Notes
The record is an 84-nucleotide RNA sequence from Piliocolobus tephrosceles, which matches "mir-548 microRNA precursor family" in Rfam. The organism belongs to Piliocolobus, within Eukaryota. Its family is annotated with miRNA-mediated post-transcriptional gene silencing and RISC complex in the Gene Ontology. Rfam 15.1 lists 3,009 matches to the family in 27 species.
RNA sequence: AUUUAGGUAGGUGCAAAAUUCAUUGCGGUUUUUGCCAUUGAAAGUAAUGGCAAAAACCGCAAUGAAUUUUGCACCGACCUAAGU
Dot-bracket structure: ((((((((.(((((((((((((((((((((((((((((((....))))))))))))))))))))))))))))))).))))))))
Numbered sequence: 001a002u003u004u005a006g007g008u009a010g011g012u013g014c015a016a017a018a019u020u021c022a023u024u025g026c027g028g029u030u031u032u033u034g035c036c037a038u039u040g041a042a043a044g045u046a047a048u049g050g051c052a053a054a055a056a057c058c059g060c061a062a063u064g065a066a067u068u069u070u071g072c073a074c075c076g077a078c079c080u081a082a083g084u
Stems, first nucleotide, its partner, number of pairs: 001084008010075031